Shown here is an 86-nucleotide sequence from Solanum lycopersicum, a member of the family "MIR8024 microRNA precursor family". Its family is annotated with miRNA-mediated post-transcriptional gene silencing and RISC complex in the Gene Ontology. The source organism's lineage runs through Eukaryota, Embryophyta, Euphyllophyta, Solaneae and Solanum subgen. Lycopersicon. Pairs were carried over by alignment from the consensus structure, which was predicted with RNAalifold.
[Rfam]
RNA sequence: UUGAAAAUUUUGAAAACUUCAACUUGCAGACUUGGAGAAUGUGAAGACUUAAACUUGUAGAUUUGGAGAAUUUGAAAAAAUCAACC
Numbered sequence: 001u002u003g004a005a006a007a008u009u010u011u012g013a014a015a016a017c018u019u020c021a022a023c024u025u026g027c028a029g030a031c032u033u034g035g036a037g038a039a040u041g042u043g044a045a046g047a048c049u050u051a052a053a054c055u056u057g058u059a060g061a062u063u064u065g066g067a068g069a070a071u072u073u074g075a076a077a078a079a080a081u082c083a084a085c086c
Base pairs, nucleotide, nucleotide: 001084002083003082004081009076010075011074012073013072014071017068018067019066020065021064025059026058027057028056032053033052035050036049037048